[Rfam]
RNA sequence: GCAGUUAGAAAUCUUCGGCAGUUAACUGCAGCCAGAUUUCUAAAACUUCGGCAGUUAACUGCCGAAGGACAU
Numbered sequence: 001g002c003a004g005u006u007a008g009a010a011a012u013c014u015u016c017g018g019c020a021g022u023u024a025a026c027u028g029c030a031g032c033c034a035g036a037u038u039u040c041u042a043a044a045a046c047u048u049c050g051g052c053a054g055u056u057a058a059c060u061g062c063c064g065a066a067g068g069a070c071a072u
Base pairs, nucleotide, nucleotide: 012068013067015065016064017063018062019061020060021059022058023057024056025055026054027053028052029051